Rfam assigns this 137-nucleotide sequence from Acrocarpospora corrugata to the family "c-di-AMP riboswitch aptamer (ydaO/yuaA leader)".
[Rfam]
RNA sequence: UCGUCCGGAACGCCUAAUCCCGAGUGCCUUACUCGGGAACCGGGGACCCAAGGUACCUGGGGUGAACGCGCGCAAGCGCCAGGGCUGUCUCCGGCCCGAACCCGUCAGCUAACCCGGUCGGCAGAAGGAGAGGAGUG
Numbered sequence: 001u002c003g004u005c006c007g008g009a010a011c012g013c014c015u016a017a018u019c020c021c022g023a024g025u026g027c028c029u030u031a032c033u034c035g036g037g038a039a040c041c042g043g044g045g046a047c048c049c050a051a052g053g054u055a056c057c058u059g060g061g062g063u064g065a066a067c068g069c070g071c072g073c074a075a076g077c078g079c080c081a082g083g084g085c086u087g088u089c090u091c092c093g094g095c096c097c098g099a100a101c102c103c104g105u106c107a108g109c110u111a112a113c114c115c116g117g118u119c120g121g122c123a124g125a126a127g128g129a130g131a132g133g134a135g136u137g
Base pairs, nucleotide, nucleotide: 012122013121014120018038019037020036021035022034023033024032025031026030039118040117041116042115043114044113049059050058060103061102062101068079069078070077071076082097083096084095085094